[Rfam]
RNA sequence: GUAAGAGAUAGAGGUCGCGCGAAUCAAGAGUAGGUCGUUGGAUGUGUGCAGGCACAGGAGAAAGCGUCGGAAAGGGAAGAGCGCCGAAAGGCCGGAAGCCCUGUAGAAGCCGGUUCUUGGGCAUGGAAUGAAGAAUUUCAUGACUGUCAUCGUUUUCCGAUGAAGCGCUAUCCGGGCA
Numbered sequence: 001g002u003a004a005g006a007g008a009u010a011g012a013g014g015u016c017g018c019g020c021g022a023a024u025c026a027a028g029a030g031u032a033g034g035u036c037g038u039u040g041g042a043u044g045u046g047u048g049c050a051g052g053c054a055c056a057g058g059a060g061a062a063a064g065c066g067u068c069g070g071a072a073a074g075g076g077a078a079g080a081g082c083g084c085c086g087a088a089a090g091g092c093c094g095g096a097a098g099c100c101c102u103g104u105a106g107a108a109g110c111c112g113g114u115u116c117u118u119g120g121g122c123a124u125g126g127a128a129u130g131a132a133g134a135a136u137u138u139c140a141u142g143a144c145u146g147u148c149a150u151c152g153u154u155u156u157c158c159g160a161u162g163a164a165g166c167g168c169u170a171u172c173c174g175g176g177c178a
Stems, first nucleotide, its partner, number of pairs: 007172005017084004024077002034068001036066004088118003091114005119145002122142008147163006
RNA: Lysine riboswitch aptamer
Organism: Clostridiaceae bacterium OM08-6BH